[Rfam]
RNA sequence: CAAACGGCCCUUUUCAGGGCCACAAAAUCAAUGAAAAAGAGUUAC
Numbered sequence: 001c002a003a004a005c006g007g008c009c010c011u012u013u014u015c016a017g018g019g020c021c022a023c024a025a026a027a028u029c030a031a032u033g034a035a036a037a038a039g040a041g042u043u044a045c
Base pairs, nucleotide, nucleotide: 006021007020008019009018010017011016
Dot-bracket structure: .....((((((....))))))........................